[Rfam]
RNA: Twister_sister_ribozyme
RNA sequence: UACACCCGCAAGGCCGACGCAUAACGCGCCGCUGGUGCAAGUCCAGCCGCCCCCACCGGGGCGGGCGCUCAUGGGUAACAC
Numbered sequence: 001u002a003c004a005c006c007c008g009c010a011a012g013g014c015c016g017a018c019g020c021a022u023a024a025c026g027c028g029c030c031g032c033u034g035g036u037g038c039a040a041g042u043c044c045a046g047c048c049g050c051c052c053c054c055a056c057c058g059g060g061g062c063g064g065g066c067g068c069u070c071a072u073g074g075g076u077a078a079c080a081c
Stems, first nucleotide, its partner, number of pairs: 004076004013066003018028003031047004048063006